[Rfam]
Rfam assigns this 243-nucleotide RNA from Drosophila rhopaloa to the family "R2 RNA element".
For this family Rfam cites "Secondary structure models of the 3' untranslated regions of diverse R2 RNAs" (Ruschak et al., RNA, 2004).
The family's RNA type in Rfam is cis-regulatory element.
The base pairs follow the family's consensus structure, which is taken from published work.
A search with the family's covariance model found it, with a score of 139 bits.
This family represents the 3' UTR region of the R2 retrotransposable element. This family is known to interact with the R2-encoded reverse transcriptase in a reaction known as target primed reverse transcription (TPRT).
NCBI's taxonomy places the organism under Eukaryota, Diptera, Schizophora, Acalyptratae, Sophophora.
RNA sequence: ACGUAGCUUGAAGUCGUUGGUACAUAUGAAAUAAUGCCUGCUGCCUUGGCAUAACAACAAGAAGGCAUAAACAAUAGUAGUAAUCAUAUAAUUUAAGGAUGGUUUUAGUACGUAGGCAUUGCAGAACCCUCAACGUGAAAAAGGUUCUAAUAAAGCAGUGAAUCGUGCAUGCUAGACAUUAUCCAACCACACAAGGUGAUGGCGGACCUAGAAUCUUUCGAAAAUUUCCAUACCUUAGCGAAC
Numbered sequence: 001a002c003g004u005a006g007c008u009u010g011a012a013g014u015c016g017u018u019g020g021u022a023c024a025u026a027u028g029a030a031a032u033a034a035u036g037c038c039u040g041c042u043g044c045c046u047u048g049g050c051a052u053a054a055c056a057a058c059a060a061g062a063a064g065g066c067a068u069a070a071a072c073a074a075u076a077g078u079a080g081u082a083a084u085c086a087u088a089u090a091a092u093u094u095a096a097g098g099a100u101g102g103u104u105u106u107a108g109u110a111c112g113u114a115g116g117c118a119u120u121g122c123a124g125a126a127c128c129c130u131c132a133a134c135g136u137g138a139a140a141a142a143g144g145u146u147c148u149a150a151u152a153a154a155g156c157a158g159u160g161a162a163u164c165g166u167g168c169a170u171g172c173u174a175g176a177c178a179u180u181a182u183c184c185a186a187c188c189a190c191a192c193a194a195g196g197u198g199a200u201g202g203c204g205g206a207c208c209u210a211g212a213a214u215c216u217u218u219c220g221a222a223a224a225u226u227u228c229c230a231u232a233c234c235u236u237a238g239c240g241a242a243c
Stems, first nucleotide, its partner, number of pairs: 042067006075241001077239002094237005100230003108168005117160006123148005170213001172211004